This 139-nucleotide RNA from Halanaerobium saccharolyticum belongs to the Rfam family "PyrR binding site". It is annotated as a cis-regulatory element. Its family is annotated with pyrimidine nucleobase biosynthetic process and pyrimidine nucleobase transport in the Gene Ontology. Pairs were carried over by alignment from the consensus structure, which is taken from published work. Rfam 15.1 lists 1,498 matches to the family in 930 species. A search with the family's covariance model found it, with a score of 57 bits.
RNA sequence: UAUCCUUUUAAAUCAGUCCAGAGAGGCUGGCAAAGGUAUAAAUUUAGUUGAGUUCUAAAGAUAAUAUUUUUAGAAUCUGAGCUAAUUAUGUCAACUUUAACCUUCAAACCAUUCUUUCUGGUGAGAAGGUUUUAUUUUU
Numbered sequence: 001u002a003u004c005c006u007u008u009u010a011a012a013u014c015a016g017u018c019c020a021g022a023g024a025g026g027c028u029g030g031c032a033a034a035g036g037u038a039u040a041a042a043u044u045u046a047g048u049u050g051a052g053u054u055c056u057a058a059a060g061a062u063a064a065u066a067u068u069u070u071u072a073g074a075a076u077c078u079g080a081g082c083u084a085a086u087u088a089u090g091u092c093a094a095c096u097u098u099a100a101c102c103u104u105c106a107a108a109c110c111a112u113u114c115u116u117u118c119u120g121g122u123g124a125g126a127a128g129g130u131u132u133u134a135u136u137u138u139u
Stems, first nucleotide, its partner, number of pairs: 004036005013030006052076010096134001099131007108122003